[Rfam]
RNA sequence: AUUUAUCUCUUGGGGUGCCAUACAUCUGCUCAUCUAUCGAUGAGCUGUGUGGCUGAGAAGCUUUGCUAACCCAUUGAACCUGAACCAGAUAAUGCUGGCGUAGGAAUUGAGAUAGCGAGUCUUG
Numbered sequence: 001a002u003u004u005a006u007c008u009c010u011u012g013g014g015g016u017g018c019c020a021u022a023c024a025u026c027u028g029c030u031c032a033u034c035u036a037u038c039g040a041u042g043a044g045c046u047g048u049g050u051g052g053c054u055g056a057g058a059a060g061c062u063u064u065g066c067u068a069a070c071c072c073a074u075u076g077a078a079c080c081u082g083a084a085c086c087a088g089a090u091a092a093u094g095c096u097g098g099c100g101u102a103g104g105a106a107u108u109g110a111g112a113u114a115g116c117g118a119g120u121c122u123u124g
Stems, first nucleotide, its partner, number of pairs: 006112004011073004017053008060066002079104004085098004
Dot-bracket structure: .....((((.((((..((((((((.....................))))))))......((...))...)))).....((((..((((......))))..))))....))))............
The family of this 124-nucleotide RNA from Marinomonas mediterranea is "TPP riboswitch aptamer (THI element)". Gene Ontology term of the family: thiamine pyrophosphate binding. The organism belongs to Marinomonas mediterranea, within Bacteria.